This 122-nucleotide RNA sequence from Roseibium suaedae belongs to the Rfam family "Alphaproteobacterial ar14". NCBI's taxonomy places the organism under Bacteria, Pseudomonadati, Hyphomicrobiales, Stappiaceae, Roseibium. It is annotated as a small RNA. About the family: Smr14C2 was renamed NfeR1 (Nodule Formation Efficiency RNA) highly expressed in salt stress and during the symbiotic interaction on legume roots.

RNA sequence: GCGUCUCACAUGAGCCACCUCCUCCCAGGCUCGAGACGUGUAAAUGGACAAGGCAUCCUCCUCCCAGUCUUGUCCAAAGAAACGUCGCUCACCAGCACCUCCUCCCGCUGGUGAGCGUCCGU
Numbered sequence: 001g002c003g004u005c006u007c008a009c010a011u012g013a014g015c016c017a018c019c020u021c022c023u024c025c026c027a028g029g030c031u032c033g034a035g036a037c038g039u040g041u042a043a044a045u046g047g048a049c050a051a052g053g054c055a056u057c058c059u060c061c062u063c064c065c066a067g068u069c070u071u072g073u074c075c076a077a078a079g080a081a082a083c084g085u086c087g088c089u090c091a092c093c094a095g096c097a098c099c100u101c102c103u104c105c106c107g108c109u110g111g112u113g114a115g116c117g118u119c120c121g122u
Base pairs, nucleotide, nucleotide: 007040008039009038011033012032013031014030015029016028045076046075047074048073049072050071051070052069053068054067086117087116088115089114090113091112092111093110094109095108096107